This 92-nucleotide RNA from Aquibacillus halophilus belongs to the Rfam family "c-di-GMP-I riboswitch aptamer".

RNA sequence: AAUAGAUAAGGGCAAAGCCAUUGAAAAAUGGUGACGCAAAGCUAGAGGGACUAAAGGCCAAUUUUAGCAGCCUAUGUCAGCCAGUUGCCGUA
Number, nucleotide and partner (000 for none) at each position: 001a000002a000003u000004a000005g000006a000007u000008a000009a000010g000011g000012g037013c036014a000015a000016a000017g032018c031019c030020a029021u028022u027023g000024a000025a000026a000027a022028a021029u020030g019031g018032u017033g000034a000035c000036g013037c012038a000039a000040a086041g085042c084043u083044a000045g000046a000047g082048g081049g078050a077051c076052u000053a000054a000055a000056g072057g071058c070059c000060a000061a000062u000063u000064u000065u000066a000067g000068c000069a000070g058071c057072c056073u000074a000075u000076g051077u050078c049079a000080g000081c048082c047083a043084g042085u041086u040087g000088c000089c000090g000091u000092a000
Gene Ontology term of the family: cyclic-di-GMP binding. The organism belongs to Aquibacillus, within Bacteria.